RNA sequence: UGGAAGUGAUGACACGGAGCUGAGUGGGUGUGUUUGGGUGCAGAGUGUGUGUGAGGAGGGGCUGAGGCAGGGCUGGGGGGGUGUGUGUGUGUAUUUGUGUGUGUGAGAUGUGAGGGGGCUCUCCUGGGGGCACUGAUGGCAGUGCUGAGCCAGGAGUGCAUCUGAGGCGUGUUGGGCGCCUCUGGGGGGCCGCUCUGCAACACUGCCAGUGAUUAAAGCCCCAAAAAAAAGCCCACCAGGAGAGCCCCAGGCACCCACAUGGCUCCCAGGGUCACCAGUGAUCCUGUGAUCUGAUCUCA
Number, nucleotide and partner (000 for none) at each position: 001u000002g297003g296004a295005a000006g000007u000008g000009a000010u000011g000012a000013c000014a000015c000016g000017g000018a000019g000020c000021u000022g000023a000024g000025u000026g000027g000028g000029u000030g000031u000032g000033u000034u000035u000036g000037g000038g000039u000040g000041c000042a000043g000044a000045g000046u000047g000048u000049g000050u000051g000052u000053g000054a000055g000056g000057a000058g000059g000060g000061g000062c000063u000064g000065a000066g000067g000068c000069a000070g000071g000072g000073c000074u000075g000076g000077g000078g000079g000080g000081g000082u000083g000084u000085g000086u000087g000088u000089g000090u000091g000092u000093a000094u000095u000096u000097g000098u000099g000100u000101g000102u000103g000104u000105g000106a000107g000108a000109u000110g000111u000112g000113a000114g000115g000116g000117g000118g000119c000120u000121c000122u000123c000124c000125u000126g000127g000128g000129g000130g000131c000132a000133c000134u000135g000136a000137u000138g000139g000140c000141a000142g000143u000144g000145c000146u000147g000148a000149g000150c000151c000152a000153g000154g000155a000156g000157u000158g000159c000160a000161u000162c000163u000164g000165a000166g000167g000168c000169g000170u202171g201172u200173u199174g198175g195176g000177c192178g191179c000180c189181u188182c187183u000184g000185g000186g000187g182188g181189g180190c000191c178192g177193c000194u000195c175196u000197g000198c174199a173200a172201c171202a170203c000204u000205g000206c000207c000208a000209g000210u000211g000212a000213u000214u000215a000216a000217a000218g000219c000220c000221c000222c000223a000224a000225a000226a000227a000228a000229a000230a000231g000232c000233c000234c000235a000236c000237c000238a000239g000240g000241a000242g000243a000244g000245c000246c000247c000248c000249a000250g000251g000252c000253a000254c000255c000256c000257a000258c000259a000260u000261g000262g000263c000264u000265c000266c000267c000268a000269g000270g000271g000272u000273c000274a000275c000276c000277a000278g000279u000280g000281a000282u000283c000284c000285u000286g000287u000288g000289a000290u000291c000292u000293g000294a000295u004296c003297u002298c000299a000
RNA: Small Cajal body-specific RNA 7